RNA sequence: GUGUCCGAGGAUACACAUCAGUCAGCGAAGGUUCGCCCACUGGUGUCUUUGUG
Numbered sequence: 001g002u003g004u005c006c007g008a009g010g011a012u013a014c015a016c017a018u019c020a021g022u023c024a025g026c027g028a029a030g031g032u033u034c035g036c037c038c039a040c041u042g043g044u045g046u047c048u049u050u051g052u053g
Base pairs, nucleotide, nucleotide: 016045017044018043019042020041021040022039025036026035027034028033